[Rfam]
RNA sequence: UCGCUCUAAGGGCAAACUGGCUGUAAAGUCAGGGCGCAAAAUGACAGUGCCUGAUGGCAGUGGUCGCUGAGUUUAAGUC
Numbered sequence: 001u002c003g004c005u006c007u008a009a010g011g012g013c014a015a016a017c018u019g020g021c022u023g024u025a026a027a028g029u030c031a032g033g034g035c036g037c038a039a040a041a042u043g044a045c046a047g048u049g050c051c052u053g054a055u056g057g058c059a060g061u062g063g064u065c066g067c068u069g070a071g072u073u074u075a076a077g078u079c
Base pairs, nucleotide, nucleotide: 012037013036017032018031019030020029021028022027040073041072042071045069046068047067049064050063051062